[Rfam]
RNA: c-di-AMP riboswitch aptamer (ydaO/yuaA leader)
Organism: Zhihengliuella flava
RNA sequence: AUUCCAGCUACGCCGAACUCUGCCACUGGGAUCUGAGAACACCAAUAACACGUCAGGCAGAGGCGGGGGAACCAGAAUUUCUCGGACACAGCACGCCCGGUGAGGGGUGUGUGUCCUCGGGGUGAAGUCAGUCAAUCUCCAGGUUGGGGGAGCGCUGGCCGGGUGGAUCUCGUACCCGAAUCCGACAGCUAACUUCGUAGGCAACUGAGAGGUAAUUG
Numbered sequence: 001a002u003u004c005c006a007g008c009u010a011c012g013c014c015g016a017a018c019u020c021u022g023c024c025a026c027u028g029g030g031a032u033c034u035g036a037g038a039a040c041a042c043c044a045a046u047a048a049c050a051c052g053u054c055a056g057g058c059a060g061a062g063g064c065g066g067g068g069g070a071a072c073c074a075g076a077a078u079u080u081c082u083c084g085g086a087c088a089c090a091g092c093a094c095g096c097c098c099g100g101u102g103a104g105g106g107g108u109g110u111g112u113g114u115c116c117u118c119g120g121g122g123u124g125a126a127g128u129c130a131g132u133c134a135a136u137c138u139c140c141a142g143g144u145u146g147g148g149g150g151a152g153c154g155c156u157g158g159c160c161g162g163g164u165g166g167a168u169c170u171c172g173u174a175c176c177c178g179a180a181u182c183c184g185a186c187a188g189c190u191a192a193c194u195u196c197g198u199a200g201g202c203a204a205c206u207g208a209g210a211g212g213u214a215a216u217u218g
Stems, first nucleotide, its partner, number of pairs: 012202003018062007063198006073119001120183003128158004161177004